Rfam assigns this 95-nucleotide sequence from Photobacterium jeanii to the family "sraA". It scores 64 bits against the family's covariance model. Lineage of the source: Bacteria > Gammaproteobacteria > Vibrionales > Vibrionaceae > Photobacterium. A reference for the family is Argaman et al. (2001), "Novel small RNA-encoding genes in the intergenic regions of Escherichia coli", Curr Biol.
RNA sequence: GUAUACCUGAGUAUAUGGGGGUAAAGGCGCAAGAUUCAACGGCAGAAACAACAGAAAAUAAAAAAGGAGGCAUUAGCCUCCUUUUUUUAGUCACU
Numbered sequence: 001g002u003a004u005a006c007c008u009g010a011g012u013a014u015a016u017g018g019g020g021g022u023a024a025a026g027g028c029g030c031a032a033g034a035u036u037c038a039a040c041g042g043c044a045g046a047a048a049c050a051a052c053a054g055a056a057a058a059u060a061a062a063a064a065a066g067g068a069g070g071c072a073u074u075a076g077c078c079u080c081c082u083u084u085u086u087u088u089a090g091u092c093a094c095u
Stems, first nucleotide, its partner, number of pairs: 008038001010036003016031002019028001061086011